RNA sequence: AAGCAUGUUUCCACAGACUGUAACAGGUUGUGGCCAAGGAUCAUCAAUUGCAUGCAAGUAUACUGUAAAGGAACUCUGACAGCUCAGGUCAACACAAUACCUGCAGCUGGCACUCACCUUUCAUAUAACA
Dot-bracket structure: ..........((...(.(((((......))))).)..)).............................(((...........(.((((...........)))).....).........))).........
RNA: Small nucleolar RNA SNORA44